This 85-nucleotide sequence from Eumeta japonica belongs to the Rfam family "mir-276 microRNA precursor family".

[Rfam]
RNA sequence: GAUGGUGAUUGCCACUAGCGAGGUAUAGAGUUCCUACGUGCGAAUGAUUGUAGGAACUUCAUACCGUGCUCUUGGGUUCGCCAAA
Numbered sequence: 001g002a003u004g005g006u007g008a009u010u011g012c013c014a015c016u017a018g019c020g021a022g023g024u025a026u027a028g029a030g031u032u033c034c035u036a037c038g039u040g041c042g043a044a045u046g047a048u049u050g051u052a053g054g055a056a057c058u059u060c061a062u063a064c065c066g067u068g069c070u071c072u073u074g075g076g077u078u079c080g081c082c083a084a085a
Stems, first nucleotide, its partner, number of pairs: 012075003017070004022065005028059010
The source organism's lineage runs through Eukaryota, Eumetazoa, Allotriocarida, Tineoidea and Eumeta. The literature on the family includes a 2010 paper in BMC Genomics by Skalsky et al., "Identification of microRNAs expressed in two mosquito vectors, Aedes albopictus and Culex quinquefasciatus". Its family is annotated with RISC complex and miRNA-mediated post-transcriptional gene silencing in the Gene Ontology.